This 176-nucleotide RNA from Massiliimalia timonensis belongs to the Rfam family "Ribosomal protein L10 leader". Pairs were carried over by alignment from the consensus structure, which was predicted with CMfinder. From the family's description: This family is a putative r-protein leader autoregulatory structure found in B. subtilis and other low-GC Gram-positive bacteria. It is located in the 5' untranslated regions of mRNAs encoding ribosomal proteins L10 and L12 (rplJ-rplL). A Rho-independent transcription terminator structure that is probably involved in regulation is included at the 3' end. The organism belongs to Massiliimalia, within Bacteria.
RNA sequence: AUUAAAGCUGUUAUUUUUCUAUAGACCACAGGUGCAGAUUUUGUAUAAUUGUGCUAUGCAGCGCAGCCUGUCGAGGAGGAAUAAAAGGCGGAUCAUUUGAAUAGGGCCAUGCCUUAUUAUAUGUAGAUCAGUCCUUCCCUUCUCAUGUAGAAGCGGAAGGAUUUUUUAUUUCAUAA
Number, nucleotide and partner (000 for none) at each position: 001a000002u000003u000004a000005a000006a000007g000008c000009u000010g000011u000012u000013a000014u000015u000016u000017u000018u000019c000020u000021a000022u000023a000024g000025a000026c000027c000028a071029c070030a069031g068032g067033u066034g044035c043036a042037g000038a000039u000040u000041u000042u036043g035044u034045a000046u000047a000048a000049u000050u000051g000052u000053g000054c000055u000056a000057u000058g000059c000060a000061g000062c000063g000064c000065a000066g033067c032068c031069u030070g029071u028072c000073g000074a000075g000076g000077a000078g000079g000080a000081a000082u000083a000084a000085a000086a000087g000088g000089c000090g000091g000092a000093u000094c000095a000096u000097u000098u000099g000100a000101a000102u000103a000104g000105g000106g000107c000108c000109a000110u000111g000112c000113c000114u000115u000116a000117u000118u000119a000120u000121a000122u000123g000124u000125a000126g000127a000128u000129c000130a000131g000132u161133c160134c159135u158136u157137c156138c155139c000140u153141u152142c000143u000144c000145a000146u000147g000148u000149a000150g000151a000152a141153g140154c000155g138156g137157a136158a135159g134160g133161a132162u000163u000164u000165u000166u000167u000168a000169u000170u000171u000172c000173a000174u000175a000176a000
For this family Rfam cites "Specific interactions of the L10(L12)4 ribosomal protein complex with mRNA, rRNA, and L11" (Iben and Draper, Biochemistry, 2008).
By type it is a cis-regulatory leader.